Notes
The record is a 147-nucleotide RNA sequence from Glycine max, which matches "MIR4371 microRNA precursor family" in Rfam. Clan: MIR4387 microRNA precursor clan. A search with the family's covariance model found it, with a score of 132 bits.

[Rfam]
RNA sequence: CUAUUAAGUGAUGACAUGGUAGACGAAGUGCCAUGUCAUCACACCUUGUCACAGACACCCCAUUGCCAUGUCAUCACCUUCAAUGACGUGUCAAUGAUUGGGCGUGAUGACAUGACAUUUCAUCUGCAAUGUCAUCACUUAAUGAAA
Numbered sequence: 001c002u003a004u005u006a007a008g009u010g011a012u013g014a015c016a017u018g019g020u021a022g023a024c025g026a027a028g029u030g031c032c033a034u035g036u037c038a039u040c041a042c043a044c045c046u047u048g049u050c051a052c053a054g055a056c057a058c059c060c061c062a063u064u065g066c067c068a069u070g071u072c073a074u075c076a077c078c079u080u081c082a083a084u085g086a087c088g089u090g091u092c093a094a095u096g097a098u099u100g101g102g103c104g105u106g107a108u109g110a111c112a113u114g115a116c117a118u119u120u121c122a123u124c125u126g127c128a129a130u131g132u133c134a135u136c137a138c139u140u141a142a143u144g145a146a147a
Stems, first nucleotide, its partner, number of pairs: 002144016019127005025121006032114011044102003048098004054092005070087005
The base pairs follow the family's consensus structure, which was predicted with RNAalifold.